The family of this 84-nucleotide sequence from Equus caballus is "mir-7 microRNA precursor family".
The source organism's lineage runs through Eukaryota, Gnathostomata, Mammalia, Theria and Equus.
The family's consensus secondary structure was predicted with PFOLD.
Gene Ontology terms of the family: RISC complex and miRNA-mediated post-transcriptional gene silencing.
Rfam 15.1 lists 2,589 matches to the family in 797 species.
On this family, see Lagos-Quintana et al., Science 2001: "Identification of novel genes coding for small expressed RNAs".
[Rfam]
RNA sequence: GGUCUAGUGCUGUGUGGAAGACUAGUGAUUUUGUUGUUUUGACGUACUAUGACAACAAAUCACGGCUUCCUCACAGCGUAGGCU
Numbered sequence: 001g002g003u004c005u006a007g008u009g010c011u012g013u014g015u016g017g018a019a020g021a022c023u024a025g026u027g028a029u030u031u032u033g034u035u036g037u038u039u040u041g042a043c044g045u046a047c048u049a050u051g052a053c054a055a056c057a058a059a060u061c062a063c064g065g066c067u068u069c070c071u072c073a074c075a076g077c078g079u080a081g082g083c084u
Base pairs, nucleotide, nucleotide: 001084002083003082004081005080007079008078010076011075012074013073014072016070017069019068020067022065023064025063026062027061028060029059030058031057033056034055035054036053037052038051
Dot-bracket structure: (((((.((.(((((.((.((.((.(((((((.((((((............))))))))))))))).)))).))))).)))))))